A member of the RNA family "Gag/pol translational readthrough site" from Nannospalax galili, 62 nucleotides long. The source organism's lineage runs through Eukaryota, Gnathostomata, Tetrapoda, Amniota and Nannospalax. By type it is a cis-regulatory element.

RNA sequence: AAGGGAAGUCGGGGCCAGGAGCUCCCCCCUGAGCCCAGGGUAACCUUGAAGAUAGGGGGGCA
Numbered sequence: 001a002a003g004g005g006a007a008g009u010c011g012g013g014g015c016c017a018g019g020a021g022c023u024c025c026c027c028c029c030u031g032a033g034c035c036c037a038g039g040g041u042a043a044c045c046u047u048g049a050a051g052a053u054a055g056g057g058g059g060g061c062a
Stems, first nucleotide, its partner, number of pairs: 008041003012036004016031004022060006